[Rfam]
RNA sequence: CAACCAAUGCCGGGGAGUCCAGGAGGACUGAGAGGACGCAGGACGCCGUCGACCCGCUGAACCUGAUCUGGGUCAUUCCAGCGAAGGGAGCACCAUGUCCGAGCGA
Numbered sequence: 001c002a003a004c005c006a007a008u009g010c011c012g013g014g015g016a017g018u019c020c021a022g023g024a025g026g027a028c029u030g031a032g033a034g035g036a037c038g039c040a041g042g043a044c045g046c047c048g049u050c051g052a053c054c055c056g057c058u059g060a061a062c063c064u065g066a067u068c069u070g071g072g073u074c075a076u077u078c079c080a081g082c083g084a085a086g087g088g089a090g091c092a093c094c095a096u097g098u099c100c101g102a103g104c105g106a
Base pairs, nucleotide, nucleotide: 008092009091010090011056012055013054014053017028018027019026020025035050036049037048038047062087063086064085068081069080070079071078
About this RNA:
Shown here is a 106-nucleotide RNA from a Solirubrobacteraceae bacterium, a member of the family "TPP riboswitch aptamer (THI element)". The organism belongs to Solirubrobacteraceae, within Bacteria. Rfam describes the family as follows. Vitamin B(1) in its active form thiamin pyrophosphate (TPP) is an essential coenzyme that is synthesised by coupling of pyrimidine and thiazole moieties in bacteria. The previously detected thiamin-regulatory element, thi box was extended, resulting in a new, highly conserved RNA secondary structure, the THI element, which is widely distributed in eubacteria and also occurs in some archaea. Analysis of operon structures identified a large number of new candidate thiamin-regulated genes, mostly transporters, in various prokaryotic organisms.